This 78-nucleotide sequence from Trichobilharzia regenti belongs to the Rfam family "mir-3492 microRNA precursor family". Its family is annotated with miRNA-mediated post-transcriptional gene silencing and RISC complex in the Gene Ontology. A search with the family's covariance model found it, with a score of 46 bits. Taxonomically the source falls in Trichobilharzia (Eukaryota, Eumetazoa, Lophotrochozoa, Schistosomatidae).
RNA sequence: AGCCCUCUGUAUCCGUACUGAGAUUUUGUCAGCGACCAACCCGUUGUGGCUGAUGGUACUUUGCAAAUAAGUGAAGCG
Number, nucleotide and partner (000 for none) at each position: 001a000002g077003c076004c000005c000006u073007c000008u071009g000010u069011a068012u067013c000014c000015g000016u063017a062018c000019u000020g061021a060022g059023a000024u058025u000026u056027u055028g054029u053030c052031a000032g000033c000034g000035a000036c000037c000038a000039a000040c000041c000042c000043g000044u000045u000046g000047u000048g000049g000050c000051u000052g030053a029054u028055g027056g026057u000058a024059c022060u021061u020062u017063g016064c000065a000066a000067a012068u011069a010070a000071g008072u000073g006074a000075a000076g003077c002078g000